The family of this 258-nucleotide sequence from Streptomyces solincola is "Streptomyces RNA 1601".
From the family's description: Identified by deep sequencing of transcriptome at the end of exponential growth phase. Appears longer on northern blot than sequencing transcript. Streptomyces specific.
The family's RNA type in Rfam is small RNA.
The organism belongs to Streptomyces, within Bacteria.

RNA sequence: GACGACCGGCCGGACGCGACUUCACGCGAGUCACUGCUCCGUAUGACUGUGGCCCGCAUGACGGCGCGGACCGGCCCGCAAGUGGAGGCUCCGAUCUCCCACCUUGCCGCCCCCGAGGCGGCGGGUCACCGGUCAGGCGGUUCCCAUCGUUCCGUACGGACGAUGGAUCCGCCCGAUGUGCGCCCCGCGGCAUGACCGUGGCGGUGUUCCGGUAUGUGUCCACGGAGCCCCGCCUGUGUCCCGUCCGGGGCAUUUUUC
Numbered sequence: 001g002a003c004g005a006c007c008g009g010c011c012g013g014a015c016g017c018g019a020c021u022u023c024a025c026g027c028g029a030g031u032c033a034c035u036g037c038u039c040c041g042u043a044u045g046a047c048u049g050u051g052g053c054c055c056g057c058a059u060g061a062c063g064g065c066g067c068g069g070a071c072c073g074g075c076c077c078g079c080a081a082g083u084g085g086a087g088g089c090u091c092c093g094a095u096c097u098c099c100c101a102c103c104u105u106g107c108c109g110c111c112c113c114c115g116a117g118g119c120g121g122c123g124g125g126u127c128a129c130c131g132g133u134c135a136g137g138c139g140g141u142u143c144c145c146a147u148c149g150u151u152c153c154g155u156a157c158g159g160a161c162g163a164u165g166g167a168u169c170c171g172c173c174c175g176a177u178g179u180g181c182g183c184c185c186c187g188c189g190g191c192a193u194g195a196c197c198g199u200g201g202c203g204g205u206g207u208u209c210c211g212g213u214a215u216g217u218g219u220c221c222a223c224g225g226a227g228c229c230c231c232g233c234c235u236g237u238g239u240c241c242c243g244u245c246c247g248g249g250g251c252a253u254u255u256u257u258c
Base pairs, nucleotide, nucleotide: 004134005133006132007131008130009129012072013071073127074126075125076124077123080104082102083101084100085099086097087096106122107121108120109119110118111117136173137172138171139170140169142167144166145165146164147163148162149161150160151159182251183250184249185248186247187246188243189242190241197238198237199236200234201233202232203231204230206228207227208226209225210224